[Rfam]
RNA: mir-71 microRNA precursor family
RNA sequence: GGACGGUGAAAGACAUGGGUAGUGAGACGCCAUAAGCCCAAUAUAGCCACUGGGCUCGUAUUGUGCGCCGUAUCACUAUUCUGUUUUUCGCCCUCCC
Numbered sequence: 001g002g003a004c005g006g007u008g009a010a011a012g013a014c015a016u017g018g019g020u021a022g023u024g025a026g027a028c029g030c031c032a033u034a035a036g037c038c039c040a041a042u043a044u045a046g047c048c049a050c051u052g053g054g055c056u057c058g059u060a061u062u063g064u065g066c067g068c069c070g071u072a073u074c075a076c077u078a079u080u081c082u083g084u085u086u087u088u089c090g091c092c093c094u095c096c097c
Base pairs, nucleotide, nucleotide: 008089009088010087011086012085013084014083015082017081018080019079021077022076023075024074025073027071028070029069